Background: A member of the RNA family "mir-998 microRNA precursor family" from Papilio xuthus, 83 nucleotides long. The family has 7 seed sequences and 83 matches in Rfam 15.1.
RNA sequence: AGGGGCCGUGCCGCGAGCUGUCUCCCGUGCGGCUCCAGUGCGCGCGUGUAGCACCAUGGGAUUCAGCUCACGGCAGGUCCCAC
Numbered sequence: 001a002g003g004g005g006c007c008g009u010g011c012c013g014c015g016a017g018c019u020g021u022c023u024c025c026c027g028u029g030c031g032g033c034u035c036c037a038g039u040g041c042g043c044g045c046g047u048g049u050a051g052c053a054c055c056a057u058g059g060g061a062u063u064c065a066g067c068u069c070a071c072g073g074c075a076g077g078u079c080c081c082a083c
Base pairs, nucleotide, nucleotide: 003081004080005079007077009075012073015069016068018066019065020064023061024060025059026058027057028056029055033051034050036048037047